[Rfam]
RNA sequence: GAUGGCGGCCUGCCGAAUUCGUGCAGCCAGGAGGCACGGAGCCGGGGAACCAGCGAUCCCACAUUCCCCUAGGGAUCAGGGGUGAAUCGGCGCGCCUAUCGCGCCGUAGGGCUACUUCCAGGCCCGAAUCCGUCAGCUAACCCGGUAGGCGUUCGUGGAAGACACA
Numbered sequence: 001g002a003u004g005g006c007g008g009c010c011u012g013c014c015g016a017a018u019u020c021g022u023g024c025a026g027c028c029a030g031g032a033g034g035c036a037c038g039g040a041g042c043c044g045g046g047g048a049a050c051c052a053g054c055g056a057u058c059c060c061a062c063a064u065u066c067c068c069c070u071a072g073g074g075a076u077c078a079g080g081g082g083u084g085a086a087u088c089g090g091c092g093c094g095c096c097u098a099u100c101g102c103g104c105c106g107u108a109g110g111g112c113u114a115c116u117u118c119c120a121g122g123c124c125c126g127a128a129u130c131c132g133u134c135a136g137c138u139a140a141c142c143c144g145g146u147a148g149g150c151g152u153u154c155g156u157g158g159a160a161g162a163c164a165c166a
Stems, first nucleotide, its partner, number of pairs: 011151004018040007041146006051079001080131003088106004109125004